A member of the RNA family "anti ponA RNA" from Pseudomonas aeruginosa, 294 nucleotides long. Taxonomically the source falls in Pseudomonas aeruginosa (Bacteria, Pseudomonadati, Pseudomonadota, Pseudomonas). The sequence is in the family's curated seed alignment. On this family, see Gomez-Lozano et al., BMC Genomics 2014: "Expression of antisense small RNAs in response to stress in Pseudomonas aeruginosa". Rfam's curators write: Transcribed antisense to the penicillin-binding protein 1A gene called ponA. It was identified by RNAseq and the expression was validated by 5' and 3' RACE experiments. AsponA expression was up or down regulated under different antibiotic stress. Due to its location it may be able to prevent the transcription or translation of the opposite gene. Study by Wurtzel et al. and Ferrara et al. also detected its expression. The family's consensus secondary structure was predicted with RNAfold.
RNA sequence: GAAAUUGUCGUCCUCGGCGGACAGCAGGGCAUGGAUGAAGUCCUGCGGGAUGUCGGCGAAGCGGAUCGGCGUCCGGCGCAUCUCGCCGAACUCGGAGAUCAGCUUGCCGUCCUCGCUGUAGACCUUGAGGGGGAUCUGCAGCUGGACGUUACGCAGAGCUUCCACCGAGGGCAGGCUGGGACUCAGAUAGAGAUAGGCGCCGCUGAAACUGAGCAGCACUCCACAAAUCAGGGUGACGCAAGUCCACCACAGGAACUUCAGCAGGCGCAUGGGUAGAUUCGGAUUUCCAGGAAA
Numbered sequence: 001g002a003a004a005u006u007g008u009c010g011u012c013c014u015c016g017g018c019g020g021a022c023a024g025c026a027g028g029g030c031a032u033g034g035a036u037g038a039a040g041u042c043c044u045g046c047g048g049g050a051u052g053u054c055g056g057c058g059a060a061g062c063g064g065a066u067c068g069g070c071g072u073c074c075g076g077c078g079c080a081u082c083u084c085g086c087c088g089a090a091c092u093c094g095g096a097g098a099u100c101a102g103c104u105u106g107c108c109g110u111c112c113u114c115g116c117u118g119u120a121g122a123c124c125u126u127g128a129g130g131g132g133g134a135u136c137u138g139c140a141g142c143u144g145g146a147c148g149u150u151a152c153g154c155a156g157a158g159c160u161u162c163c164a165c166c167g168a169g170g171g172c173a174g175g176c177u178g179g180g181a182c183u184c185a186g187a188u189a190g191a192g193a194u195a196g197g198c199g200c201c202g203c204u205g206a207a208a209c210u211g212a213g214c215a216g217c218a219c220u221c222c223a224c225a226a227a228u229c230a231g232g233g234u235g236a237c238g239c240a241a242g243u244c245c246a247c248c249a250c251a252g253g254a255a256c257u258u259c260a261g262c263a264g265g266c267g268c269a270u271g272g273g274u275a276g277a278u279u280c281g282g283a284u285u286u287c288c289a290g291g292a293a294a
Stems, first nucleotide, its partner, number of pairs: 010172008019163003024046007047084006054078002057075002061070002086095003101160004105155003108148005115142008123133004176290006183283002186280002197268005202262006213239002217235003221232002243254003